[Rfam]
RNA sequence: AACCAUAGUCUCGUGCUAGUUCGGUACCAUACAGGAAAGGGAAGACACGCACAUACGUGUGUGUGCGCUUCUUGCUAUUGUUGCUUAGCUUUCCUAAAACACUGGGCUAGCGUUUCUCAACGCUCGAGAGGCAGAGUCUCAAGGAGCCCCCAGUGGGCCCCAUGCAUCCAUCUAGAUGGCACUUCGGACAGUGGCACUAUAUAGGGGAUUCGGCUUCCAACUUCUCCUCCGGCCUUCGCGGCCGGGGUUUUGAGUCGUUGGAUCACGGGCCGUUUCCCUUAGUCGUUGUCUUGGGUGUUGUUGCCUUUAACGAUGUGUGCGAGGGGUUCGGGGGCUGUUGCCAUGAUUUAUAUGGAUGAGACAGAAGUAGCCCCGUUGACGAGUCAACUUAGAUCAAGUAGGAUGCAUGAUCUUGAGCUCUUUUCCUAUACUUUCUCCCACACCGGGCUUUCUCCUUAUUACGAAGAGAGAGCAAGGCGCGAGGGCGAGUGGGAAAAUCUGAGUUCGGUCAUCUUUGUUGUCAUCCUACUGCAGUAUAUUCCUAAACACUAUGAAACGGCCCUAGUUUGGUCAAUGAUCAUUUGGGUAAAACCAUACUGCAGACAUCU
Number, nucleotide and partner (000 for none) at each position: 001a000002a000003c000004c000005a000006u000007a000008g000009u037010c000011u035012c034013g032014u031015g030016c000017u029018a000019g027020u026021u000022c000023g000024g000025u000026a020027c019028c000029a017030u015031a014032c013033a000034g012035g011036a000037a009038a000039g000040g000041g000042a390043a389044g388045a000046c000047a384048c383049g000050c381051a000052c378053a377054u000055a376056c375057g374058u000059g102060u101061g100062u099063g000064u000065g000066c000067g000068c000069u000070u000071c000072u000073u000074g089075c088076u087077a086078u000079u000080g000081u000082u000083g000084c000085u000086u077087a076088g075089c074090u000091u000092u000093c000094c000095u000096a000097a000098a000099a062100c061101a060102c059103u000104g373105g372106g371107c370108u369109a368110g000111c000112g132113u131114u130115u129116c128117u127118c126119a000120a000121c000122g000123c000124u000125c000126g118127a117128g116129a115130g114131g113132c112133a000134g000135a000136g362137u361138c360139u359140c358141a357142a000143g000144g000145a336146g335147c334148c333149c332150c331151c330152a000153g000154u000155g329156g328157g327158c326159c325160c324161c323162a000163u000164g320165c319166a318167u317168c000169c000170a000171u000172c000173u000174a000175g000176a000177u000178g000179g000180c000181a000182c000183u310184u309185c000186g305187g304188a000189c303190a302191g301192u300193g299194g298195c297196a296197c295198u294199a283200u282201a000202u281203a280204g279205g278206g277207g276208a275209u000210u000211c272212g000213g270214c269215u268216u267217c261218c260219a259220a258221c257222u000223u000224c254225u253226c252227c247228u246229c245230c244231g243232g242233c241234c240235u000236u000237c000238g000239c000240g234241g233242c232243c231244g230245g229246g228247g227248u000249u000250u000251u000252g226253a225254g224255u000256c000257g221258u220259u219260g218261g217262a000263u000264c000265a000266c000267g216268g215269g214270c213271c000272g211273u000274u000275u208276c207277c206278c205279u204280u203281a202282g200283u199284c000285g000286u000287u000288g000289u000290c000291u000292u000293g000294g198295g197296u196297g195298u194299u193300g192301u191302u190303g189304c187305c186306u000307u000308u000309a184310a183311c000312g000313a000314u000315g000316u000317g167318u166319g165320c164321g000322a000323g161324g160325g159326g158327u157328u156329c155330g151331g150332g149333g148334g147335c146336u145337g000338u000339u000340g000341c355342c354343a353344u352345g351346a000347u000348u000349u000350a000351u345352a344353u343354g342355g341356a000357u141358g140359a139360g138361a137362c136363a000364g000365a000366a000367g000368u109369a108370g107371c106372c105373c104374c057375g056376u055377u053378g052379a000380c000381g050382a000383g048384u047385c000386a000387a000388c044389u043390u042391a000392g000393a000394u000395c000396a000397a000398g529399u528400a527401g526402g525403a524404u523405g522406c000407a000408u511409g510410a509411u508412c000413u000414u507415g506416a505417g504418c503419u502420c501421u497422u496423u495424u494425c493426c492427u491428a000429u000430a490431c489432u488433u487434u000435c000436u485437c483438c000439c481440a000441c479442a000443c000444c476445g000446g000447g473448c472449u000450u000451u469452c468453u467454c466455c000456u000457u000458a000459u000460u000461a000462c000463g000464a000465a000466g454467a453468g452469a451470g000471a000472g448473c447474a000475a000476g444477g000478c000479g441480c000481g439482a000483g437484g000485g436486c000487g433488a432489g431490u430491g427492g426493g425494a424495a423496a422497a421498u000499c000500u000501g420502a419503g418504u417505u416506c415507g414508g411509u410510c409511a408512u000513c000514u000515u000516u000517g000518u000519u000520g000521u000522c405523a404524u403525c402526c401527u400528a399529c398530u000531g600532c599533a598534g597535u596536a595537u594538a000539u000540u000541c000542c000543u000544a000545a000546a000547c000548a587549c586550u585551a000552u000553g000554a583555a582556a581557c000558g579559g578560c000561c576562c000563u574564a000565g572566u000567u000568u000569g000570g000571u000572c565573a000574a563575u000576g561577a000578u559579c558580a000581u556582u555583u554584g000585g550586g549587u548588a000589a000590a000591a000592c000593c000594a537595u536596a535597c534598u533599g532600c531601a000602g000603a000604c000605a000606u000607c000608u000
RNA: Small nucleolar RNA snR30